[Rfam]
RNA sequence: UUGCUUUAGGGAUGAACAGUCCCUCGUAGUUAAUAACCAUCUAAACCACUUAGUCAGUGGCCUUUUUGGUGGCUUAUCCAUCAUUAUGGGAUGGAUGGUAU
Numbered sequence: 001u002u003g004c005u006u007u008a009g010g011g012a013u014g015a016a017c018a019g020u021c022c023c024u025c026g027u028a029g030u031u032a033a034u035a036a037c038c039a040u041c042u043a044a045a046c047c048a049c050u051u052a053g054u055c056a057g058u059g060g061c062c063u064u065u066u067u068g069g070u071g072g073c074u075u076a077u078c079c080a081u082c083a084u085u086a087u088g089g090g091a092u093g094g095a096u097g098g099u100a101u
Stems, first nucleotide, its partner, number of pairs: 037094005053081002057077004
Rfam assigns this 101-nucleotide sequence from Gossypium mustelinum to the family "Small nucleolar RNA snoR99".
It is annotated as an H/ACA-box small nucleolar RNA.
Its family is annotated with RNA processing and nucleolus in the Gene Ontology.
The family's consensus secondary structure was predicted with WAR.
It scores 42 bits against the family's covariance model.